Shown here is a 261-nucleotide RNA from Octodon degus, a member of the family "Mason-Pfizer monkey virus packaging signal". The base pairs follow the family's consensus structure, which was predicted with PFOLD. The source organism's lineage runs through Eukaryota, Deuterostomia, Craniata, Eutheria and Octodon. A search with the family's covariance model found it, with a score of 104 bits. The family has 9 seed sequences and 2,921 matches in Rfam 15.1. Rfam's curators write: This family represents a group of sequences that are related to the Mason-Pfizer monkey virus (MPMV) packaging signal.
[Rfam]
RNA sequence: UGGCACCCAGCGUGGAUUGAGAAUGGGGGAUUUCAUGAGGGACGCCGUUCAAGGAGCUGGCACAGAAGUUAGAAUAGAGGAUCGGUCAACGCGGGAACCUGCUGCAUUUUCCAGGCCUCAGUAAGUGAACGGCAAUUAUGGCUCAGGAAAUAAGCCAGCAUGAAGUGUUUGUUUAAAGUUUAAGUAAGGCUUUAAAUGCAUGAGGAGUAAAGGUUAAAAUUAAGGAUUUGUGUCAAUAUUUUGAAUGUAUUAAACAAGUUU
Number, nucleotide and partner (000 for none) at each position: 001u000002g000003g000004c000005a000006c029007c028008c027009a000010g000011c000012g024013u023014g000015g000016a000017u000018u000019g000020a000021g000022a000023a013024u012025g000026g000027g008028g007029g006030a000031u000032u000033u000034c044035a000036u042037g000038a000039g000040g000041g000042a036043c000044g034045c000046c000047g000048u000049u000050c000051a000052a000053g000054g000055a000056g000057c000058u000059g000060g000061c000062a000063c000064a000065g000066a000067a000068g000069u000070u000071a000072g000073a000074a000075u000076a000077g119078a118079g117080g000081a000082u115083c114084g000085g000086u000087c000088a000089a000090c000091g105092c104093g103094g102095g000096a000097a000098c000099c000100u000101g000102c094103u093104g092105c091106a000107u000108u000109u000110u000111c000112c000113a000114g083115g082116c000117c079118u078119c077120a000121g000122u000123a000124a000125g000126u145127g144128a143129a000130c000131g142132g000133c140134a139135a000136u000137u000138a000139u134140g133141g000142c131143u128144c127145a126146g000147g000148a000149a000150a000151u194152a193153a192154g190155c189156c188157a000158g000159c000160a000161u000162g000163a000164a000165g000166u000167g000168u000169u000170u000171g000172u000173u000174u000175a000176a000177a000178g000179u000180u000181u000182a000183a000184g000185u000186a000187a000188g156189g155190c154191u000192u153193u152194a151195a000196a000197u000198g000199c000200a000201u243202g242203a241204g240205g239206a000207g237208u236209a000210a000211a229212g228213g227214u226215u225216a000217a000218a000219a000220u000221u000222a000223a000224g000225g215226a214227u213228u212229u211230g000231u000232g000233u000234c000235a000236a208237u207238a000239u205240u204241u203242u202243g201244a000245a000246u000247g000248u000249a000250u000251u000252a000253a000254a000255c000256a000257a000258g000259u000260u000261u000
For this family Rfam cites "Mutational analysis of the predicted secondary RNA structure of the Mason-Pfizer monkey virus packaging signal" (Mustafa et al., Virus Res, 2004). The family's RNA type in Rfam is cis-regulatory element.